Rfam assigns this 130-nucleotide sequence from Gadus morhua to the family "Small nucleolar RNA SNORA26". Rfam's curators write: The snoRNA HBI-6 belong to the H/ACA family of snoRNAs, guiding the pseudouridylation of position U4522 if the 28S rRNA. HBI-6 is the human orthologue of mouse MBI-6 snoRNA. NCBI's taxonomy places the organism under Eukaryota, Bilateria, Vertebrata, Acanthomorphata, Gadus. Rfam 15.1 lists 1,943 matches to the family in 640 species. The family's consensus secondary structure was predicted with RNAalifold.
RNA sequence: UUACCCCCCUUUUAUUGCCUAUCUUGGACCUGUGUUCUUGAUGAUUAACGCAGGGGGGUAAAUUAUCCCUCUCAUAAACCUGUGGUGGAGGCUCAAUCCCUCGCUAUGGAUCCUGUCGGGAGAAACAAGU
Numbered sequence: 001u002u003a004c005c006c007c008c009c010u011u012u013u014a015u016u017g018c019c020u021a022u023c024u025u026g027g028a029c030c031u032g033u034g035u036u037c038u039u040g041a042u043g044a045u046u047a048a049c050g051c052a053g054g055g056g057g058g059u060a061a062a063u064u065a066u067c068c069c070u071c072u073c074a075u076a077a078a079c080c081u082g083u084g085g086u087g088g089a090g091g092c093u094c095a096a097u098c099c100c101u102c103g104c105u106a107u108g109g110a111u112c113c114u115g116u117c118g119g120g121a122g123a124a125a126c127a128a129g130u
Stems, first nucleotide, its partner, number of pairs: 002060009015048003069122005080109007088102003